[Rfam]
This 76-nucleotide RNA sequence from Pipistrellus kuhlii belongs to the Rfam family "mir-9229 microRNA precursor family".

RNA sequence: GAGACACCCGUAUGGGGCAGGACUUGCUUCAGUGGGACUUUGGUGCUCACUGAGUCUGUCCCUUGAGUAUCUCUCU
Numbered sequence: 001g002a003g004a005c006a007c008c009c010g011u012a013u014g015g016g017g018c019a020g021g022a023c024u025u026g027c028u029u030c031a032g033u034g035g036g037a038c039u040u041u042g043g044u045g046c047u048c049a050c051u052g053a054g055u056c057u058g059u060c061c062c063u064u065g066a067g068u069a070u071c072u073c074u075c076u
Stems, first nucleotide, its partner, number of pairs: 001075004006070001009067001011065002014062006021056003029053008037044002